[Rfam]
RNA sequence: GUGGGAGGAAGCUCACUGUAGAGGUCACAUGCUGAGUGUCUUAUCACUCCACCAAUCACCUCGGGGAAGGUCUGAGAAAUGAGCCAAUUGCUGCCCUCGCAGGGCAUCACCUGAUACGGGUGAGUGAGUUCCCAGUAAUGUUGGGUCCGGGUGAAACUCAUGAGCAGGAGAAGCAGCGUGCGGAACAGGAAUCGUUUCGCCCUGUGGAUGCGGGUUCACUAGGAUUGGAAUUACUCACGGCUGGCGUUAUGAGUUCAAUGUGUGAGUUGAGAUAACCGAGUCUUACAACCCAAUUCAGACUACUCUCCUCCCAC
Number, nucleotide and partner (000 for none) at each position: 001g314002u313003g312004g311005g000006a000007g308008g307009a306010a000011g000012c266013u265014c264015a263016c262017u000018g000019u000020a000021g062022a061023g060024g059025u000026c000027a000028c000029a000030u000031g000032c000033u000034g049035a048036g047037u046038g045039u000040c000041u000042u000043a000044u000045c038046a037047c036048u035049c034050c000051a000052c000053c000054a000055a000056u000057c000058a000059c024060c023061u022062c021063g000064g000065g000066g000067a000068a000069g000070g000071u000072c298073u297074g296075a295076g294077a000078a000079a000080u000081g000082a242083g241084c240085c239086a000087a000088u000089u000090g000091c000092u106093g105094c104095c103096c102097u000098c000099g000100c000101a000102g096103g095104g094105c093106a092107u123108c122109a121110c120111c119112u118113g000114a000115u000116a000117c000118g112119g111120g110121u109122g108123a107124g238125u237126g236127a235128g234129u233130u000131c000132c000133c000134a000135g000136u000137a000138a000139u000140g000141u000142u000143g000144g000145g000146u224147c223148c222149g000150g000151g000152u000153g000154a000155a000156a000157c000158u000159c000160a000161u000162g000163a000164g000165c000166a000167g000168g000169a000170g000171a000172a000173g000174c000175a000176g000177c000178g000179u000180g000181c000182g000183g000184a000185a000186c000187a000188g000189g000190a000191a000192u000193c000194g000195u000196u000197u000198c000199g000200c000201c000202c000203u000204g000205u000206g000207g000208a000209u000210g000211c000212g000213g000214g000215u000216u000217c000218a000219c000220u000221a000222g148223g147224a146225u000226u000227g000228g000229a000230a000231u000232u000233a129234c128235u127236c126237a125238c124239g085240g084241c083242u082243g000244g000245c000246g000247u000248u000249a000250u000251g000252a000253g000254u000255u000256c000257a000258a000259u000260g000261u000262g016263u015264g014265a013266g012267u000268u285269g284270a283271g282272a281273u280274a000275a000276c000277c000278g000279a000280g273281u272282c271283u270284u269285a268286c000287a000288a000289c000290c000291c000292a000293a000294u076295u075296c074297a073298g072299a000300c000301u000302a000303c000304u000305c000306u009307c008308c007309u000310c000311c004312c003313a002314c001
A member of the RNA family "Nuclear RNase P" from Acipenser ruthenus, 314 nucleotides long. Lineage of the source: Eukaryota > Chordata > Actinopterygii > Actinopteri > Acipenser. By type it is a ribozyme. Rfam links the family to the GO terms ribonuclease P complex, tRNA processing and ribonuclease P activity.